[Rfam]
Nucleotides: 117
Stems, first nucleotide, its partner, number of pairs: 003115002006112005017029003031097002033087002035049004044085002054061001067083005089100003
Number, partner (000 for none) and nucleotide at each position: 001000a002000u003115u004114u005000u006112u007111c008110u009109u010108c011000g012000g013000g014000g015000c016000a017029g018028g019027g020000u021000g022000c023000a024000a025000u026000u027019c028018c029017c030000u031097a032096c033087c034086g035049g036048u037047g038046g039000u040000u041000a042000c043000a044085g045084c046038c047037c048036a049035c050000g051000a052000g053000c054061c055000u056000u057000a058000u059000u060000g061054g062000c063000a064000u065000g066000a067083u068082u069081u070080g071079g072000u073000g074000a075000a076000a077000u078000u079071c080070c081069a082068a083067a084045g085044c086034c087033g088000a089100c090099a091098g092000u093000a094000u095000a096032g097031u098091c099090u100089g101000g102000a103000u104000g105000u106000g107000a108010g109009a110008a111007g112006a113000u114004a115003a116000a117000u

Shown here is a 117-nucleotide RNA sequence from Peptostreptococcaceae bacterium AS15, a member of the family "FMN riboswitch aptamer (RFN element)". Rfam describes the family as follows. The RFN element is a highly conserved domain that is found frequently in the 5'-untranslated regions of prokaryotic mRNAs that encode for flavin mononucleotide (FMN) biosynthesis and transport proteins. Pairs were carried over by alignment from the consensus structure, which is taken from published work.